[Rfam]
RNA: Makes More Granules Regulator RNA (mmgR)
RNA sequence: GGAGUGUGCCUUUCAGGCAUCCUCUCCUAAAAACUUUCAAGGCCGGGCAUUGCCCGGCUUUUUUUUGGUCACGA
Numbered sequence: 001g002g003a004g005u006g007u008g009c010c011u012u013u014c015a016g017g018c019a020u021c022c023u024c025u026c027c028u029a030a031a032a033a034c035u036u037u038c039a040a041g042g043c044c045g046g047g048c049a050u051u052g053c054c055c056g057g058c059u060u061u062u063u064u065u066u067g068g069u070c071a072c073g074a
Stems, first nucleotide, its partner, number of pairs: 008018004041059008